This 76-nucleotide sequence from Pseudomonas sp. HAR-UPW-AIA-41 belongs to the Rfam family "Xanthomonas sRNA sX9". It is annotated as a small RNA. Taxonomically the source falls in Pseudomonas (Bacteria, Gammaproteobacteria, Pseudomonadales, Pseudomonadaceae).

[Rfam]
RNA sequence: AUGUACUAGCUGUACAUUCCGGUUCCUAUGCUCCGUCCGCCCCGAGCUGACACCCGCUCGCUACGCUUUGAGGACA
Numbered sequence: 001a002u003g004u005a006c007u008a009g010c011u012g013u014a015c016a017u018u019c020c021g022g023u024u025c026c027u028a029u030g031c032u033c034c035g036u037c038c039g040c041c042c043c044g045a046g047c048u049g050a051c052a053c054c055c056g057c058u059c060g061c062u063a064c065g066c067u068u069u070g071a072g073g074a075c076a
Base pairs, nucleotide, nucleotide: 002016003015004014005013006012020035021034022033025030048073051070052069